[Rfam]
RNA sequence: GGCUGGUCCCAAGGUAGUGAGUGAUCUCACUUGAUUGUUCACAGGCAGCUACAGAUUGAACUCCUUGUUCUACUACUUUCCUCCCUUCUCCCUACUGCACUUGACUAGUCUUAA
Numbered sequence: 001g002g003c004u005g006g007u008c009c010c011a012a013g014g015u016a017g018u019g020a021g022u023g024a025u026c027u028c029a030c031u032u033g034a035u036u037g038u039u040c041a042c043a044g045g046c047a048g049c050u051a052c053a054g055a056u057u058g059a060a061c062u063c064c065u066u067g068u069u070c071u072a073c074u075a076c077u078u079u080c081c082u083c084c085c086u087u088c089u090c091c092c093u094a095c096u097g098c099a100c101u102u103g104a105c106u107a108g109u110c111u112u113a114a
Base pairs, nucleotide, nucleotide: 001110002109003108004107005106006105007104008103011101014098015097016093017092019090020089021088044074045073047071048070

The record is a 114-nucleotide RNA from Propithecus coquereli, which matches "Y RNA" in Rfam. Pairs were carried over by alignment from the consensus structure, which is taken from published work. By type it is a non-coding RNA gene. About the family: Y RNAs are components of the Ro ribonucleoprotein particle (Ro RNP), in association with Ro60 and La proteins. The Y RNAs and Ro60 and La proteins are well conserved, but the function of the Ro RNP is not known. In humans the RNA component can be one of four small RNAs -- hY1, hY3, hY4 and hY5. These small RNAs are predicted to fold into a conserved secondary structure containing three stem structures.